[Rfam]
A member of the RNA family "Small nucleolar RNA SNORD97" from Myripristis murdjan, 182 nucleotides long. The family's consensus secondary structure was predicted with WAR. The match comes from Rfam's covariance-model search (67 bits). By type it is a C/D-box small nucleolar RNA.
RNA sequence: UUGCCCAGUGAUUAAAAAAAGACGCGUUAUUCUGAGGGAUACAACCAGCUGCCAGUCUGUGACUUUUCUGUCCCUCUAUCUUUUUGUCUCCUCCACCUCUCCUAUCCUUCUGCACCUCAUCUUCUUUUUCUCCUCAAACUGGCAGCUGGUCCGCUGACUGUGAUUAUGAGAUAUGAGGGCAA
Numbered sequence: 001u002u003g004c005c006c007a008g009u010g011a012u013u014a015a016a017a018a019a020a021g022a023c024g025c026g027u028u029a030u031u032c033u034g035a036g037g038g039a040u041a042c043a044a045c046c047a048g049c050u051g052c053c054a055g056u057c058u059g060u061g062a063c064u065u066u067u068c069u070g071u072c073c074c075u076c077u078a079u080c081u082u083u084u085u086g087u088c089u090c091c092u093c094c095a096c097c098u099c100u101c102c103u104a105u106c107c108u109u110c111u112g113c114a115c116c117u118c119a120u121c122u123u124c125u126u127u128u129u130c131u132c133c134u135c136a137a138a139c140u141g142g143c144a145g146c147u148g149g150u151c152c153g154c155u156g157a158c159u160g161u162g163a164u165u166a167u168g169a170g171a172u173a174u175g176a177g178g179g180c181a182a
Stems, first nucleotide, its partner, number of pairs: 001182006035075007
Dot-bracket structure: ((((((............................(((((((...........................))))))).....................................................................................................))))))
Background: NCBI's taxonomy places the organism under Eukaryota, Craniata, Gnathostomata, Clupeocephala, Myripristis. Rfam 15.1 lists 639 matches to the family in 614 species.